[Rfam]
RNA: Small nucleolar RNA sn3071
Organism: Laodelphax striatellus
RNA sequence: UUACUAUGAUGAUCUUGUCACGACGGUCUUCUGAUGUGAAAUAAUGAAUGACAUUUAUGUGACACUGAGUAG
Numbered sequence: 001u002u003a004c005u006a007u008g009a010u011g012a013u014c015u016u017g018u019c020a021c022g023a024c025g026g027u028c029u030u031c032u033g034a035u036g037u038g039a040a041a042u043a044a045u046g047a048a049u050g051a052c053a054u055u056u057a058u059g060u061g062a063c064a065c066u067g068a069g070u071a072g
Stems, first nucleotide, its partner, number of pairs: 001072004